[Rfam]
RNA: mir-8904 microRNA precursor family
RNA sequence: CCUCAGGCUCCCUGGGACAGUAACACAACAACUGCGCCCCGGGGAGAGUGCGCCAAGCUCCCUAAAGGGCUGCAGCGUGCACACGGCUGGACCCGGGCGCAGCU
Dot-bracket structure: ......((.(((.((..((((......((..((((((((.((((((..((...))..))))))...)))).)))).))....))...))..)).))).))....